[Rfam]
RNA: Eukaryotic small subunit ribosomal RNA, nucleotides 671 to 1270
Organism: Gonodactylaceus falcatus
RNA sequence: AGGCUCGCAGUUGAAUGUCAGUGCCGGUUGUUGGUAGGUGGACGUUGGGAUGUCAGUUAAAGGCGCAAGCCAACUGGUCGCUCCCGUCCGUUAAAAGCCUCCGCGACCGUGUACACAGUGGCGCCAAGCGGAGGGGAUGCGUUCGCGUGUUCUUCUCUCUGGUGCCAAUGUCACCCUGAGUAAAUCAGAGUGCUUAAAGCAGUCGUAUUGGGCGCAAGCCUUUGAACACAGUCGCUCCUUCGCGGGUGACACGGACAGACUUGGUUUUGCAUGGCAUGUCAGAACACGACGUCGGGCGCUGGCUCAGAGUUCUUCUCAGUGGUAUAAGCCAGCCUCGACGUACUGAUUAAAAGGGCUUGUCGAGGGCAUUGGUAUUGCGGAGCGAGAGGUGAAAUUCUAUGACCUCCGCAAGACCGCCCGAAGCGAAAGCGUCUGCCAAGGAUGUUUCAUUAAUCAUGAACGAAAGUUAGAGGAUCGAAGGCGAUCAGAUACCGCCCUAGUUCUAACCUUAAACGAUGCCAACCAUCAAUCCGCGCGCAGCACCCUCUUUGCGGGCUCGGCGGGCAGCUCUCUAUCACGGGAAACCAGGGUCUCUGGGUU
Numbered sequence: 001a002g003g004c005u006c007g008c009a010g011u012u013g014a015a016u017g018u019c020a021g022u023g024c025c026g027g028u029u030g031u032u033g034g035u036a037g038g039u040g041g042a043c044g045u046u047g048g049g050a051u052g053u054c055a056g057u058u059a060a061a062g063g064c065g066c067a068a069g070c071c072a073a074c075u076g077g078u079c080g081c082u083c084c085c086g087u088c089c090g091u092u093a094a095a096a097g098c099c100u101c102c103g104c105g106a107c108c109g110u111g112u113a114c115a116c117a118g119u120g121g122c123g124c125c126a127a128g129c130g131g132a133g134g135g136g137a138u139g140c141g142u143u144c145g146c147g148u149g150u151u152c153u154u155c156u157c158u159c160u161g162g163u164g165c166c167a168a169u170g171u172c173a174c175c176c177u178g179a180g181u182a183a184a185u186c187a188g189a190g191u192g193c194u195u196a197a198a199g200c201a202g203u204c205g206u207a208u209u210g211g212g213c214g215c216a217a218g219c220c221u222u223u224g225a226a227c228a229c230a231g232u233c234g235c236u237c238c239u240u241c242g243c244g245g246g247u248g249a250c251a252c253g254g255a256c257a258g259a260c261u262u263g264g265u266u267u268u269g270c271a272u273g274g275c276a277u278g279u280c281a282g283a284a285c286a287c288g289a290c291g292u293c294g295g296g297c298g299c300u301g302g303c304u305c306a307g308a309g310u311u312c313u314u315c316u317c318a319g320u321g322g323u324a325u326a327a328g329c330c331a332g333c334c335u336c337g338a339c340g341u342a343c344u345g346a347u348u349a350a351a352a353g354g355g356c357u358u359g360u361c362g363a364g365g366g367c368a369u370u371g372g373u374a375u376u377g378c379g380g381a382g383c384g385a386g387a388g389g390u391g392a393a394a395u396u397c398u399a400u401g402a403c404c405u406c407c408g409c410a411a412g413a414c415c416g417c418c419c420g421a422a423g424c425g426a427a428a429g430c431g432u433c434u435g436c437c438a439a440g441g442a443u444g445u446u447u448c449a450u451u452a453a454u455c456a457u458g459a460a461c462g463a464a465a466g467u468u469a470g471a472g473g474a475u476c477g478a479a480g481g482c483g484a485u486c487a488g489a490u491a492c493c494g495c496c497c498u499a500g501u502u503c504u505a506a507c508c509u510u511a512a513a514c515g516a517u518g519c520c521a522a523c524c525a526u527c528a529a530u531c532c533g534c535g536c537g538c539a540g541c542a543c544c545c546u547c548u549u550u551g552c553g554g555g556c557u558c559g560g561c562g563g564g565c566a567g568c569u570c571u572c573u574a575u576c577a578c579g580g581g582a583a584a585c586c587a588g589g590g591u592c593u594c595u596g597g598g599u600u
Stems, first nucleotide, its partner, number of pairs: 001600001003461001005459002010454003353448003357444001360441002365437004371415002375411008386397003423430002466507006476500001480496004518599003522591002525569001527567001530564005536559002539557003579586002
Dot-bracket structure: (.(.((...(((....................................................................................................................................................................................................................................................................................................................................................(((.(..((...((((..((..((((((((...(((......)))......))))))))..)).......((....))...))))..))..).)))...)))...)).)....((((((....(...((((.........))))...).))))))..........(((.((.(.(..(((((.((.(((.............))))))))))..).).........((....))...)).....))))